[Rfam]
RNA sequence: CCUGAGACUAGAGUCACAUUCUGACAGAUCUUGUCCUGGUGUGCUAGUGUGCUCAGAGAGAAUCUGUGGGUCUUAAUUCAUUGGUGAGGGCAAGCAGUACCCCUAGGAGUGACCCAAUGGGAAACAUGC
Numbered sequence: 001c002c003u004g005a006g007a008c009u010a011g012a013g014u015c016a017c018a019u020u021c022u023g024a025c026a027g028a029u030c031u032u033g034u035c036c037u038g039g040u041g042u043g044c045u046a047g048u049g050u051g052c053u054c055a056g057a058g059a060g061a062a063u064c065u066g067u068g069g070g071u072c073u074u075a076a077u078u079c080a081u082u083g084g085u086g087a088g089g090g091c092a093a094g095c096a097g098u099a100c101c102c103c104u105a106g107g108a109g110u111g112a113c114c115c116a117a118u119g120g121g122a123a124a125c126a127u128g129c
Base pairs, nucleotide, nucleotide: 002056003055004054005053006052007050008049012045013044015043016042017041018040019039020038023035024034025033026032067121070118071117079111080110081109082108086104088102089101090100
Small nucleolar RNA SNORA3/SNORA45 family: a 129-nucleotide sequence from Eschrichtius robustus.
Its family is annotated with nucleolus and RNA processing in the Gene Ontology.
Its Rfam clan is "SNORA3 clan".
Rfam describes the family as follows. The members of this family belong to the H/ACA class of snoRNAs which are thought to guide the sites of modification of uridines to pseudouridines. This family includes mouse snoMBI-28 and human homologues ACA3 (SNORA3) and ACA3-2 (SNORA45). Both ACA3 and ACA3-2 share the same host gene. MBI-28, ACA3 and ACA3-2 are all predicted to guide the pseudouridylation of residues in 28S rRNA.
It scores 63 bits against the family's covariance model.
By type it is an H/ACA-box small nucleolar RNA.